[Rfam]
RNA sequence: UACCUAGUCAUUUUUGUGAUUAGGCAACUUGUGAUUUUCCAUCUUCAGUUGCAUAGUCACAAAAGUGAUUGGGCA
Numbered sequence: 001u002a003c004c005u006a007g008u009c010a011u012u013u014u015u016g017u018g019a020u021u022a023g024g025c026a027a028c029u030u031g032u033g034a035u036u037u038u039c040c041a042u043c044u045u046c047a048g049u050u051g052c053a054u055a056g057u058c059a060c061a062a063a064a065g066u067g068a069u070u071g072g073g074c075a
Stems, first nucleotide, its partner, number of pairs: 003073004008068013024052006